[Rfam]
RNA sequence: CCACGUGACACGGGGUGCCUGCAGGGUCAAGGCUGAGAUCACACCCGUCGAACCUGCCUAGUUCGUACUAGCGAAGGGAUGUCGCGCAUGACGCGC
Dot-bracket structure: .....(((((((((.(((((.........)))).......)..)))).....(((..((((......))))...)))..)))))............
Shown here is a 96-nucleotide RNA, a member of the family "TPP riboswitch aptamer (THI element)". On this family, see Sudarsan et al., RNA 2003: "Metabolite-binding RNA domains are present in the genes of eukaryotes". The base pairs follow the family's consensus structure, which is taken from published work.